[Rfam]
RNA sequence: GCUCUCCGUCAGUUUUGCAUAGUUGCGCUGCAAGAAGAAGUAAGUUGUGCAAAUCUAUGCAAAACUGAUGGUGGUC
Numbered sequence: 001g002c003u004c005u006c007c008g009u010c011a012g013u014u015u016u017g018c019a020u021a022g023u024u025g026c027g028c029u030g031c032a033a034g035a036a037g038a039a040g041u042a043a044g045u046u047g048u049g050c051a052a053a054u055c056u057a058u059g060c061a062a063a064a065c066u067g068a069u070g071g072u073g074g075u076c
Stems, first nucleotide, its partner, number of pairs: 003074002006071014023052006030045002

Record summary: mir-19 microRNA precursor family: a 76-nucleotide RNA from Menidia menidia. NCBI's taxonomy places the organism under Eukaryota, Opisthokonta, Metazoa, Ovalentaria, Menidia. The literature on the family includes a 2003 paper in Dev Cell by Houbaviy et al., "Embryonic stem cell-specific MicroRNAs". It scores 61 bits against the family's covariance model. The base pairs follow the family's consensus structure, which was predicted with RNAalifold.